A member of the RNA family "Streptomyces-metK RNA" from Streptomyces radiopugnans, 122 nucleotides long. By type it is a small RNA. It scores 54 bits against the family's covariance model. Taxonomically the source falls in Streptomyces (Bacteria, Actinomycetota, Kitasatosporales, Streptomycetaceae). The base pairs follow the family's consensus structure, which is taken from published work.
[Rfam]
RNA sequence: GCGAGACGUCCUGGCGGAUCCGCGAUGAGCUGCGGAUAAACUGACGGCGGACCGCACUCGGGCCGGCCCGACGACCGGAUCCGCACACCAAGUCAGCCAGCAGCCGCUGCAAACCCAGGGAG
Numbered sequence: 001g002c003g004a005g006a007c008g009u010c011c012u013g014g015c016g017g018a019u020c021c022g023c024g025a026u027g028a029g030c031u032g033c034g035g036a037u038a039a040a041c042u043g044a045c046g047g048c049g050g051a052c053c054g055c056a057c058u059c060g061g062g063c064c065g066g067c068c069c070g071a072c073g074a075c076c077g078g079a080u081c082c083g084c085a086c087a088c089c090a091a092g093u094c095a096g097c098c099a100g101c102a103g104c105c106g107c108u109g110c111a112a113a114c115c116c117a118g119g120g121a122g
Stems, first nucleotide, its partner, number of pairs: 049082003052078003057073001058071004098109004